[Rfam]
Nucleotides: 372
Base pairs, nucleotide, nucleotide: 001368002367003366004365005364006363007362008361009360010359011357012324013323014322015321016320017319018318020036021035022034023033024032025031026030041355042354043353045352046351047350048349049348050209051208052207053206057259058258059257060256062205063204064203065202066201067081068080069079070078071077082102083100084099085098086097087096088095089094103200104199108198109197110194111193112192125140126139127136128135129134148166149165150164151163152162153161167189168187169186170185171184172183173182174181175180213281214280215279216278223272224271225270226269227268228267251263252262253261254260288307289306290305291304292303293302294301295300
Number, partner (000 for none) and nucleotide at each position: 001368g002367c003366u004365a005364c006363a007362a008361g009360u010359c011357g012324u013323c014322u015321u016320a017319u018318c019000g020036c021035u022034u023033g024032g025031c026030u027000c028000u029000a030026a031025g032024c033023c034022a035021a036020g037000a038000g039000g040000a041355a042354a043353g044000u045352c046351c047350g048349g049348g050209c051208a052207a053206c054000a055000c056000a057259g058258a059257g060256c061000a062205a063204c064203c065202u066201g067081c068080u069079u070078c071077c072000u073000a074000a075000c076000a077071g078070g079069a080068a081067g082102g083100c084099g085098g086097u087096a088095g089094g090000c091000u092000u093000g094089c095088c096087u097086a098085c099084u100083g101000a102082c103200a104199g105000a106000a107000a108198g109197u110194g111193c112192c113000a114000c115000a116000g117000a118000a119000a120000a121000c122000a123000a124000a125140c126139c127136g128135c129134c130000g131000c132000a133000a134129g135128g136127u137000a138000a139126g140125g141000g142000u143000g144000a145000a146000a147000a148166g149165g150164u151163g152162g153161u154000g155000u156000a157000a158000g159000a160000g161153a162152c163151c164150a165149c166148c167189g168187c169186u170185u171184u172183g173182c174181u175180g176000g177000c178000g179000a180175c181174a182173g183172c184171a185170a186169a187168g188000g189167c190000a191000g192112g193111g194110c195000a196000a197109a198108c199104c200103u201066c202065a203064g204063g205062u206053g207052u208051u209050g210000a211000a212000a213281g214280a215279c216278c217000a218000a219000a220000u221000a222000a223272g224271u225270u226269g227268g228267c229000a230000u231000u232000a233000g234000c235000a236000a237000c238000u239000a240000u241000c242000u243000u244000g245000c246000u247000a248000c249000a250000a251263a252262g253261g254260u255000g256060g257059c258058u259057c260254g261253c262252c263251u264000g265000u266000a267228g268227c269226c270225a271224a272223c273000g274000g275000g276000u277000a278216g279215g280214u281213c282000g283000a284000u285000a286000g287000a288307g289306g290305c291304u292303u293302a294301u295300u296000g297000c298000g299000a300295a301294a302293u303292a304291a305290g306289c307288c308000c309000u310000a311000g312000a313000u314000a315000a316000a317000u318018g319017a320016u321015a322014a323013g324012a325000c326000g327000u328000g329000c330000c331000c332000c333000c334000a335000a336000a337000g338000c339000a340000c341000g342000a343000c344000a345000g346000a347000a348049c349048c350047c351046g352045g353043c354042u355041u356000a357011u358000a359010g360009a361008c362007u363006u364005g365004u366003a367002g368001u369000u370000u371000u372000u
Notes:
Shown here is a 372-nucleotide RNA from Raineya orbicola, a member of the family "Bacterial RNase P class A". Its family is annotated with dimeric ribonuclease P complex, tRNA processing and ribonuclease P activity in the Gene Ontology. The source organism's lineage runs through Bacteria, Pseudomonadati, Cytophagales, Raineyaceae and Raineya. A search with the family's covariance model found it, with a score of 285 bits.